[Rfam]
RNA sequence: CCCAGACCAGUGACGGCCUGUCUACAAACCCGCUUGGCGGACCGGACAGGCCUGAUGACUCCGGC
Numbered sequence: 001c002c003c004a005g006a007c008c009a010g011u012g013a014c015g016g017c018c019u020g021u022c023u024a025c026a027a028a029c030c031c032g033c034u035u036g037g038c039g040g041a042c043c044g045g046a047c048a049g050g051c052c053u054g055a056u057g058a059c060u061c062c063g064g065c
Base pairs, nucleotide, nucleotide: 005065015052016051017050018049019048020047021046022045023044030040031039032038

The record is a 65-nucleotide RNA from Megalops atlanticus, which matches "Selenocysteine insertion sequence 1" in Rfam. The base pairs follow the family's consensus structure, which is taken from published work. A search with the family's covariance model found it, with a score of 36 bits. Taxonomically the source falls in Megalops (Eukaryota, Teleostei, Elopocephalai, Elopomorpha).